[Rfam]
Rfam assigns this 173-nucleotide RNA sequence to the family "Group II catalytic intron D1-D4-3". Group II introns are found in rRNA, tRNA and mRNA of organelles in fungi, plants and protists, and also in mRNA in bacteria. The match comes from Rfam's covariance-model search (130 bits).
RNA sequence: CCAUCCGCGAGGAUGAUGAGUGAAGGAAGGAGGAGGCAAAACCGCGAACUGACGGACAGAAAGCACAUAGUAGGCUGGAUCUGGUGGAUGAGUUGGCCAAAAGCAACGAAAUCCAAGACUGUACGGAACCGUUCCAGUAAAUGUGCCAGUUACAUGCGGUGAAAGAUUCUGUU
Numbered sequence: 001c002c003a004u005c006c007g008c009g010a011g012g013a014u015g016a017u018g019a020g021u022g023a024a025g026g027a028a029g030g031a032g033g034a035g036g037c038a039a040a041a042c043c044g045c046g047a048a049c050u051g052a053c054g055g056a057c058a059g060a061a062a063g064c065a066c067a068u069a070g071u072a073g074g075c076u077g078g079a080u081c082u083g084g085u086g087g088a089u090g091a092g093u094u095g096g097c098c099a100a101a102a103g104c105a106a107c108g109a110a111a112u113c114c115a116a117g118a119c120u121g122u123a124c125g126g127a128a129c130c131g132u133u134c135c136a137g138u139a140a141a142u143g144u145g146c147c148a149g150u151u152a153c154a155u156g157c158g159g160u161g162a163a164a165g166a167u168u169c170u171g172u173u
Stems, first nucleotide, its partner, number of pairs: 002015005029173002032170002037165001041160006047151005063146006074138003078134002081131001083130002086114004092107004